Description
Rfam assigns this 221-nucleotide sequence from Bradyrhizobium sp. Leo170 to the family "permuted transfer-messenger RNA". It scores 146 bits against the family's covariance model. Rfam classes the family as a non-coding RNA gene.
Nucleotides: 221
Base pairs, nucleotide, nucleotide: 001144002143003142004141005140014134015133016132017131026123027122030120031119032118036052037051038050039049040048053105054104055103056102057101058100059099145160146159147158148157
Number, partner (000 for none) and nucleotide at each position: 001144g002143g003142a004141a005140a006000u007000a008000a009000a010000u011000g012000a013000c014134c015133g016132u017131c018000g019000a020000a021000a022000u023000a024000a025000a026123c027122c028000a029000u030120u031119c032118g033000g034000a035000c036052c037051c038050g039049g040048g041000g042000g043000c044000g045000g046000u047000a048040c049039c050038c051037g052036g053105c054104g055103c056102c057101u058100c059099c060000a061000c062000c063000a064000g065000a066000g067000c068000c069000c070000a071000u072000g073000c074000g075000g076000a077000a078000c079000c080000g081000a082000g083000a084000g085000c086000c087000g088000u089000g090000g091000g092000u093000u094000c095000c096000g097000g098000c099059g100058g101057g102056g103055g104054c105053g106000a107000a108000a109000u110000a111000g112000g113000a114000u115000c116000g117000a118032c119031g120030a121000g122027g123026g124000c125000g126000u127000a128000a129000a130000g131017g132016g133015c134014g135000u136000g137000u138000u139000u140005u141004u142003u143002c144001u145160c146159g147158g148157u149000a150000u151000g152000g153000u154000u155000c156000c157148g158147c159146c160145g161000a162000u163000a164000u165000c166000g167000g168000g169000c170000c171000a172000a173000u174000g175000c176000a177000a178000u179000a180000g181000u182000u183000g184000c185000c186000a187000a188000c189000g190000a191000c192000a193000a194000c195000u196000a197000u198000g199000c200000u201000c202000c203000g204000g205000u206000u207000g208000c209000u210000c211000a212000g213000g214000c215000u216000g217000c218000g219000u220000a221000a

Annotation
The source organism's lineage runs through Bacteria, Pseudomonadati, Pseudomonadota, Hyphomicrobiales and Bradyrhizobium.